RNA sequence: AUCCCGCGUAUGUCCGGGUCAUGACAUACACCUCCCUGUUGGACUAGGCCGGGCACUUGCCCGGCCCUUUUU
Numbered sequence: 001a002u003c004c005c006g007c008g009u010a011u012g013u014c015c016g017g018g019u020c021a022u023g024a025c026a027u028a029c030a031c032c033u034c035c036c037u038g039u040u041g042g043a044c045u046a047g048g049c050c051g052g053g054c055a056c057u058u059g060c061c062c063g064g065c066c067c068u069u070u071u072u
Stems, first nucleotide, its partner, number of pairs: 008029007047066008
This 72-nucleotide sequence belongs to the Rfam family "Singlet oxygen resistance RNA X". Rfam 15.1 lists 528 matches to the family in 356 species. The pairing is the family consensus, mapped onto this sequence. It scores 85 bits against the family's covariance model. By type it is a small RNA. Gene Ontology term of the family: response to photooxidative stress.